RNA sequence: UGCAAAUGAUGCUAACUUUUUGCUGUCUACCCUUGAUGACAACCACCAAGAUCGCUGAUGCA
Numbered sequence: 001u002g003c004a005a006a007u008g009a010u011g012c013u014a015a016c017u018u019u020u021u022g023c024u025g026u027c028u029a030c031c032c033u034u035g036a037u038g039a040c041a042a043c044c045a046c047c048a049a050g051a052u053c054g055c056u057g058a059u060g061c062a
Stems, first nucleotide, its partner, number of pairs: 001062004
RNA: Small nucleolar RNA SNORD24
Organism: Fregata magnificens